[Rfam]
The family of this 130-nucleotide sequence from Peromyscus maniculatus is "Small nucleolar RNA SNORA40". For this family Rfam cites "Mapping to nucleotide resolution of pseudouridine residues in large subunit ribosomal RNAs from representative eukaryotes, prokaryotes, archaebacteria, mitochondria and chloroplasts" (Ofengand and Bakin, J Mol Biol, 1997). By type it is an H/ACA-box small nucleolar RNA. Rfam links the family to the GO terms RNA processing and nucleolus. It scores 80 bits against the family's covariance model. The family's consensus secondary structure was predicted with RNAalifold. About the family: The snoRNA ACA 40 belongs to the H/ACA family of snoRNAs and guides the pseudouridylation of 28S rRNA subunit at position U4565. NB This family has a high threshold value to exclude a large number of closely related sequences that do not appear to have conserved H and ACA boxes, and may be pseudogenes.
RNA sequence: AACAUCUGGGAAUGUUUUUGUUGAGCUAGUGGACAAAGACUAAAGACAGGUAUAAAAAUAGAUCCUCUUUUGCAACCCAGAACUCAUCAUUUAGUAUGAGUUUUGAUGUUUUGAUACAUAUAAGGACUAU
Numbered sequence: 001a002a003c004a005u006c007u008g009g010g011a012a013u014g015u016u017u018u019u020g021u022u023g024a025g026c027u028a029g030u031g032g033a034c035a036a037a038g039a040c041u042a043a044a045g046a047c048a049g050g051u052a053u054a055a056a057a058a059u060a061g062a063u064c065c066u067c068u069u070u071u072g073c074a075a076c077c078c079a080g081a082a083c084u085c086a087u088c089a090u091u092u093a094g095u096a097u098g099a100g101u102u103u104u105g106a107u108g109u110u111u112u113g114a115u116a117c118a119u120a121u122a123a124g125g126a127c128u129a130u
Base pairs, nucleotide, nucleotide: 002053004051005050006049007048008047014040015039016038017037018036019035020034021033026031063126064125065124066123069120071118072117078105079104080103081102082101083100084099085098086097087096
Dot-bracket structure: .(.(((((.....((((((((....(....).))))))))......))))).).........((((..(.((.....((((((((((........))))))))))...........)).)..))))....